Shown here is a 67-nucleotide sequence from Bacillus sp. MUM 13, a member of the family "Bacillaceae-1 RNA". It scores 76 bits against the family's covariance model. Taxonomically the source falls in Bacillus (Bacteria, Bacillota, Bacilli, Caryophanales).
[Rfam]
RNA sequence: UUCAUAGGAACAAAGACUAAGAACGCCGCGUCCUGCGGCAACAUCUUUGUGACCCCCAUCCUGGGGG
Number, nucleotide and partner (000 for none) at each position: 001u000002u000003c000004a000005u000006a000007g000008g000009a000010a000011c049012a048013a047014a046015g045016a044017c000018u000019a000020a000021g000022a000023a000024c000025g039026c038027c037028g036029c035030g000031u000032c000033c000034u000035g029036c028037g027038g026039c025040a000041a000042c000043a000044u016045c015046u014047u013048u012049g011050u000051g000052a000053c067054c066055c065056c064057c063058a000059u000060c000061c000062u000063g057064g056065g055066g054067g053